About this RNA:
Shown here is a 257-nucleotide RNA from Gambusia affinis, a member of the family "RNase MRP". A search with the family's covariance model found it, with a score of 147 bits. Rfam classes the family as a ribozyme. The literature on the family includes a 1993 paper in FASEB J by Schmitt et al., "Secondary structure of RNase MRP RNA as predicted by phylogenetic comparison". The organism belongs to Gambusia, within Eukaryota. The family has 66 seed sequences and 3,510 matches in Rfam 15.1. The base pairs follow the family's consensus structure, which is taken from published work.
[Rfam]
RNA sequence: GGGCAUUCAGAAGGUUUGCAAUCUGGGCUACAAACAGAGAACCUAGUUUCUCAUAUACUUGCCCAGGGGAAAGUCCCCGGACCCGUGGCAGAAAGUGUCCUGGUUAAACCCAGCCUCGGCCUGCGCUCCUCCACCCGUGCCAAGACGUUCAUGUGAACAGAGCUUGGGGAUCGCUUGUCGAAUUUGUCAGCGUUAAGAGGAAUGCAAACACCAUGCAUGAAACGCUUCAACAGAACGGGGCUCAUUCUCCGAAUGCA
Numbered sequence: 001g002g003g004c005a006u007u008c009a010g011a012a013g014g015u016u017u018g019c020a021a022u023c024u025g026g027g028c029u030a031c032a033a034a035c036a037g038a039g040a041a042c043c044u045a046g047u048u049u050c051u052c053a054u055a056u057a058c059u060u061g062c063c064c065a066g067g068g069g070a071a072a073g074u075c076c077c078c079g080g081a082c083c084c085g086u087g088g089c090a091g092a093a094a095g096u097g098u099c100c101u102g103g104u105u106a107a108a109c110c111c112a113g114c115c116u117c118g119g120c121c122u123g124c125g126c127u128c129c130u131c132c133a134c135c136c137g138u139g140c141c142a143a144g145a146c147g148u149u150c151a152u153g154u155g156a157a158c159a160g161a162g163c164u165u166g167g168g169g170a171u172c173g174c175u176u177g178u179c180g181a182a183u184u185u186g187u188c189a190g191c192g193u194u195a196a197g198a199g200g201a202a203u204g205c206a207a208a209c210a211c212c213a214u215g216c217a218u219g220a221a222a223c224g225c226u227u228c229a230a231c232a233g234a235a236c237g238g239g240g241c242u243c244a245u246u247c248u249c250c251g252a253a254u255g256c257a
Base pairs, nucleotide, nucleotide: 003256004255005254006253007252008251010249011248014209015208016207017206018205019204022067023066024065025064026063027062028061037052038051039050040049041048072242073241075240076239077238078237087099088098089097090096100113101112102111103110116181117180118179124177125176128173134169135168136167137165139163140162147158148157149156150155213227215225216224218222